[Rfam]
RNA sequence: UAGUUAUCAAGAAAGGUGGAGGGAAUAGACCCUUUGAAACCUUAGCAACCCUUUGCAUAUGCAAAGAAGGUGCUACAUUCUACCCAAUCAAUUUUAAGAUUGUGGAGAGAUAACGA
Numbered sequence: 001u002a003g004u005u006a007u008c009a010a011g012a013a014a015g016g017u018g019g020a021g022g023g024a025a026u027a028g029a030c031c032c033u034u035u036g037a038a039a040c041c042u043u044a045g046c047a048a049c050c051c052u053u054u055g056c057a058u059a060u061g062c063a064a065a066g067a068a069g070g071u072g073c074u075a076c077a078u079u080c081u082a083c084c085c086a087a088u089c090a091a092u093u094u095u096a097a098g099a100u101u102g103u104g105g106a107g108a109g110a111u112a113a114c115g116a
Base pairs, nucleotide, nucleotide: 001116003114004113005112006111007110008109013043014042015041016040017039021032022031023030026082027081028080029079044074045073046072047071049070050069051066052065053064054063078108083105084104085102086101087100088099
Notes: Rfam assigns this 116-nucleotide RNA sequence from Tenacibaculum holothuriorum to the family "SAM riboswitch aptamer (S box leader)". Pairs were carried over by alignment from the consensus structure, which is taken from published work. Rfam's curators write: The SAM riboswitch is found upstream of a number of genes which code for proteins involved in methionine or cysteine biosynthesis in Gram-positive bacteria. A search with the family's covariance model found it, with a score of 77 bits.